This 333-nucleotide RNA from Phyllostomus discolor belongs to the Rfam family "7SK RNA". The family's consensus secondary structure is taken from published work. Taxonomically the source falls in Phyllostomus (Eukaryota, Craniata, Eutheria, Boreoeutheria). On this family, see Blencowe, Curr Biol 2002: "Transcription: surprising role for an elusive small nuclear RNA".
RNA sequence: GGAUGUGAGGGCAAUCUGGCUGUGACAUCUGUCAUCCCAUUGAUUGCCGGGGUUGAUUCAGCUGAUCUGGCUGGCUAGGCAGGUGUUCCCUUCCUCCCUCAUCAAUCCAUGUACAUCCCUCCUGAAGCUGCACACUGGAUGGAAGAGGACAACCUUCCCAACUAGAGGAGAGGACCAGUCUUUUGUCAAGGGUAUACGAGUAGCUGUGCUUCCCUACUAGAACCUCUCAACAAACUCUCAAGGUCCAUUUGUAGGAGAACAUAGGGUAGUCAAGUUUCCAAGACUCCAGACACAUCCAAAUGAGUUGCUGCAUGUGGCAGCCUGCCUUUCUCA
Numbered sequence: 001g002g003a004u005g006u007g008a009g010g011g012c013a014a015u016c017u018g019g020c021u022g023u024g025a026c027a028u029c030u031g032u033c034a035u036c037c038c039a040u041u042g043a044u045u046g047c048c049g050g051g052g053u054u055g056a057u058u059c060a061g062c063u064g065a066u067c068u069g070g071c072u073g074g075c076u077a078g079g080c081a082g083g084u085g086u087u088c089c090c091u092u093c094c095u096c097c098c099u100c101a102u103c104a105a106u107c108c109a110u111g112u113a114c115a116u117c118c119c120u121c122c123u124g125a126a127g128c129u130g131c132a133c134a135c136u137g138g139a140u141g142g143a144a145g146a147g148g149a150c151a152a153c154c155u156u157c158c159c160a161a162c163u164a165g166a167g168g169a170g171a172g173g174a175c176c177a178g179u180c181u182u183u184u185g186u187c188a189a190g191g192g193u194a195u196a197c198g199a200g201u202a203g204c205u206g207u208g209c210u211u212c213c214c215u216a217c218u219a220g221a222a223c224c225u226c227u228c229a230a231c232a233a234a235c236u237c238u239c240a241a242g243g244u245c246c247a248u249u250u251g252u253a254g255g256a257g258a259a260c261a262u263a264g265g266g267u268a269g270u271c272a273a274g275u276u277u278c279c280a281a282g283a284c285u286c287c288a289g290a291c292a293c294a295u296c297c298a299a300a301u302g303a304g305u306u307g308c309u310g311c312a313u314g315u316g317g318c319a320g321c322c323u324g325c326c327u328u329u330c331u332c333a
Base pairs, nucleotide, nucleotide: 001108002107003106005102006101007100008099009098010097011096014092018090019089024087025086026085027084028083029082030081031080032079033078035074036073037070038069039068042067043066044065045064046062047061116173117172118168119167120166121165123138125136127135147158148157149156203275204274205273209269210268212266213265214264215263216262224257225256226255227254230252231251232250233249234248300331302328303327304326306324307321308320309319310318311317
Rfam classes the family as a non-coding RNA gene. The family is grouped with related families in Rfam's "7SK clan". It scores 291 bits against the family's covariance model.